[Rfam]
This 211-nucleotide RNA from Malus baccata belongs to the Rfam family "MIR530 microRNA precursor family". The literature on the family includes a 2008 paper in Plant J by Lu et al., "Stress-responsive microRNAs in Populus". Rfam links the family to the GO terms RISC complex and miRNA-mediated post-transcriptional gene silencing. Taxonomically the source falls in Malus (Eukaryota, Tracheophyta, Euphyllophyta, Rosaceae).

RNA sequence: UCCAAAAUGAAGCUUUUAUCUGCAUUUGCACCUGCACUUGUACUAGUUCUUGUUUCUUACUUCCUUGAAAAACCCUGAAACCAAGCUUCAAAGCAUGGCAAAGGUUUUAGAUGUAUGAGAGGAAAAAAAAGAAGAAAAGAGGAAAGGAAUAAAGGAAGAGGAGGAACAAGCAACAGGUGCAGGUGCAAGUGCAGGUGAAUGCCAUUUUGGU
Numbered sequence: 001u002c003c004a005a006a007a008u009g010a011a012g013c014u015u016u017u018a019u020c021u022g023c024a025u026u027u028g029c030a031c032c033u034g035c036a037c038u039u040g041u042a043c044u045a046g047u048u049c050u051u052g053u054u055u056c057u058u059a060c061u062u063c064c065u066u067g068a069a070a071a072a073c074c075c076u077g078a079a080a081c082c083a084a085g086c087u088u089c090a091a092a093g094c095a096u097g098g099c100a101a102a103g104g105u106u107u108u109a110g111a112u113g114u115a116u117g118a119g120a121g122g123a124a125a126a127a128a129a130a131g132a133a134g135a136a137a138a139g140a141g142g143a144a145a146g147g148a149a150u151a152a153a154g155g156a157a158g159a160g161g162a163g164g165a166a167c168a169a170g171c172a173a174c175a176g177g178u179g180c181a182g183g184u185g186c187a188a189g190u191g192c193a194g195g196u197g198a199a200u201g202c203c204a205u206u207u208u209g210g211u
Base pairs, nucleotide, nucleotide: 002210003209004208005207006206007205008204009203012202013201015199016198017197018196019195020194021193022192023191024190025189026188027187028186029185030184031183032182033181034180035179036178037177038176039175054119055118056117